[Rfam]
RNA sequence: AUAUACACUGAGUGGCCAGAUUAUUAUGUGUUUAGAAACUAUAAUAAUCUGGCCAUUCAGUGUAUAU
Numbered sequence: 001a002u003a004u005a006c007a008c009u010g011a012g013u014g015g016c017c018a019g020a021u022u023a024u025u026a027u028g029u030g031u032u033u034a035g036a037a038a039c040u041a042u043a044a045u046a047a048u049c050u051g052g053c054c055a056u057u058c059a060g061u062g063u064a065u066a067u
Stems, first nucleotide, its partner, number of pairs: 004064014019049010
RNA: mir-9256 microRNA precursor family
Organism: Pipistrellus kuhlii